[Rfam]
RNA sequence: CACGCCCUGGCGGGAGAGUCGGAUGCGUCACUCACACAUCCGGCACCGAAGGAGCAAUUCUCCCCGUCAAUCUCUCAGGUUCCCGUACCGCCCGGGCUGG
Number, nucleotide and partner (000 for none) at each position: 001c000002a000003c000004g000005c000006c095007c094008u000009g092010g091011c090012g089013g088014g000015a000016g000017a000018g000019u043020c042021g041022g040023a039024u038025g037026c000027g000028u000029c000030a000031c000032u000033c000034a000035c000036a000037c025038a024039u023040c022041c021042g020043g019044c000045a080046c079047c078048g076049a075050a000051g000052g074053a073054g072055c000056a000057a000058u000059u066060c000061u000062c000063c000064c000065c000066g059067u000068c000069a000070a000071u000072c054073u053074c052075u049076c048077a000078g047079g046080u045081u000082c000083c000084c000085g000086u000087a000088c013089c012090g011091c010092c009093c000094g007095g006096g000097c000098u000099g000100g000
RNA: Glycine riboswitch aptamer